[Rfam]
A member of the RNA family "c-di-GMP-I riboswitch aptamer" from Piscibacillus halophilus, 85 nucleotides long.

RNA sequence: GCAGUUUAAAGGCAAACCUUUUGAAAAAAAGGGACGCAAAGCGAGUGGUCUAAGGGAUUGAACCUAAGACAGCACAGCUGCCUCA
Numbered sequence: 001g002c003a004g005u006u007u008a009a010a011g012g013c014a015a016a017c018c019u020u021u022u023g024a025a026a027a028a029a030a031g032g033g034a035c036g037c038a039a040a041g042c043g044a045g046u047g048g049u050c051u052a053a054g055g056g057a058u059u060g061a062a063c064c065u066a067a068g069a070c071a072g073c074a075c076a077g078c079u080g081c082c083u084c085a
Stems, first nucleotide, its partner, number of pairs: 012037002017032006040079003045075003048070003055064002
The match comes from Rfam's covariance-model search (76 bits).